U11 spliceosomal RNA: a 134-nucleotide sequence from Phytophthora boehmeriae. The family is grouped with related families in Rfam's "U1 clan". Gene Ontology terms of the family: pre-mRNA 5'-splice site binding, mRNA 5'-splice site recognition and U11 snRNP.

[Rfam]
RNA sequence: AAAAAGGGCAGGCCUUAUCUAAGGCACAAAAUGGGCGGGCUUCCGUUCUUGUGGUGAAUCGCGAUCAGGAGAUUUGCCCUGCAUAAUUUGUGAGCGGCCGCGUUGGAAUGGGCCUCAUGGGCUAAUUCCACCGG
Numbered sequence: 001a002a003a004a005a006g007g008g009c010a011g012g013c014c015u016u017a018u019c020u021a022a023g024g025c026a027c028a029a030a031a032u033g034g035g036c037g038g039g040c041u042u043c044c045g046u047u048c049u050u051g052u053g054g055u056g057a058a059u060c061g062c063g064a065u066c067a068g069g070a071g072a073u074u075u076g077c078c079c080u081g082c083a084u085a086a087u088u089u090g091u092g093a094g095c096g097g098c099c100g101c102g103u104u105g106g107a108a109u110g111g112g113c114c115u116c117a118u119g120g121g122c123u124a125a126u127u128c129c130a131c132c133g134g
Stems, first nucleotide, its partner, number of pairs: 008082005013024004025053005031047001034044002054077007100132001102131002105129005112122004
Dot-bracket structure: .......(((((((((....))))(((((.(..((.......))..).)))))(((((((..........)))))))))))).................(.((.(((((..((((...))))..))))))))..
For this family Rfam cites "Additional low-abundance human small nuclear ribonucleoproteins: U11, U12, etc" (Montzka and Steitz, Proc Natl Acad Sci U S A, 1988).